This 153-nucleotide sequence from Amborella trichopoda belongs to the Rfam family "MIR8565 microRNA precursor family".
Pairs were carried over by alignment from the consensus structure, which was predicted with RNAalifold.
Gene Ontology terms of the family: miRNA-mediated post-transcriptional gene silencing and RISC complex.
NCBI's taxonomy places the organism under Eukaryota, Tracheophyta, Euphyllophyta, Amborellaceae, Amborella.
RNA sequence: CCCACACCCAUGUGUGUAGGACCUUAAAGAAUCACCAUUAUAUUUGGCACAUAUCUCUAGAAAAGUUAUUACAUGGUGUGGGACUUGACUUUUCUAGAGAUAUGUGUCAAAUUUAAUAGUGAUCUUUUGGGGUCCUAAAUACAUGGGUGUGAG
Number, nucleotide and partner (000 for none) at each position: 001c000002c000003c151004a150005c149006a148007c147008c146009c145010a144011u143012g142013u141014g000015u139016g000017u137018a136019g135020g134021a133022c132023c131024u130025u129026a128027a127028a126029g000030a000031a123032u122033c000034a120035c119036c000037a117038u116039u115040a114041u000042a112043u111044u110045u109046g108047g107048c106049a105050c104051a103052u102053a101054u100055c099056u098057c097058u096059a095060g094061a093062a092063a091064a090065g089066u088067u087068a086069u081070u080071a079072c078073a077074u000075g000076g000077u073078g072079u071080g070081g069082g000083a000084c000085u000086u068087g067088a066089c065090u064091u063092u062093u061094c060095u059096a058097g057098a056099g055100a054101u053102a052103u051104g050105u049106g048107u047108c046109a045110a044111a043112u042113u000114u040115a039116a038117u037118a000119g035120u034121g000122a032123u031124c000125u000126u028127u027128u026129g025130g024131g023132g022133u021134c020135c019136u018137a017138a000139a015140u000141a013142c012143a011144u010145g009146g008147g007148u006149g005150u004151g003152a000153g000